DUF805b RNA: a 35-nucleotide sequence from Spirosoma montaniterrae.
[Rfam]
RNA sequence: GAGGUGUAAGCCAAAAAACCUAAAAAGAGUAGGCA
Numbered sequence: 001g002a003g004g005u006g007u008a009a010g011c012c013a014a015a016a017a018a019c020c021u022a023a024a025a026a027g028a029g030u031a032g033g034c035a
Stems, first nucleotide, its partner, number of pairs: 002021004010034003
NCBI's taxonomy places the organism under Bacteria, Pseudomonadati, Cytophagales, Cytophagaceae, Spirosoma.